Record summary: The record is a 173-nucleotide RNA sequence from Glycine max, which matches "mir-172 microRNA precursor family" in Rfam. A reference for the family is Mette et al. (2002), "Short RNAs can identify new candidate transposable element families in Arabidopsis", Plant Physiol. Rfam describes the family as follows. mir-172 has been experimentally verified in Arabidopsis thaliana. This family is thought to target mRNAs coding for APETALA2-like transcription factors. The mature sequence is excised from the 3' arm of the hairpin. The base pairs follow the family's consensus structure, which was predicted with PFOLD.
RNA sequence: GUAUCUGCAGGUGCAGCAGCAUCAAGAUUCACACCGCCUAAUUUGCUAGGACUUCAGGACUGCACACGCUUAAUUAUACAUACAUAUAUACAUAUAUGUUAGCUCUUUGUGGAGUGCGGAAUAAAGUUCUAUUUUAGAUGUGGGAAUCUUGAUGAUGCUGCAUCAGCAAAUAC
Numbered sequence: 001g002u003a004u005c006u007g008c009a010g011g012u013g014c015a016g017c018a019g020c021a022u023c024a025a026g027a028u029u030c031a032c033a034c035c036g037c038c039u040a041a042u043u044u045g046c047u048a049g050g051a052c053u054u055c056a057g058g059a060c061u062g063c064a065c066a067c068g069c070u071u072a073a074u075u076a077u078a079c080a081u082a083c084a085u086a087u088a089u090a091c092a093u094a095u096a097u098g099u100u101a102g103c104u105c106u107u108u109g110u111g112g113a114g115u116g117c118g119g120a121a122u123a124a125a126g127u128u129c130u131a132u133u134u135u136a137g138a139u140g141u142g143g144g145a146a147u148c149u150u151g152a153u154g155a156u157g158c159u160g161c162a163u164c165a166g167c168a169a170a171u172a173c
Stems, first nucleotide, its partner, number of pairs: 010164009020154011032142002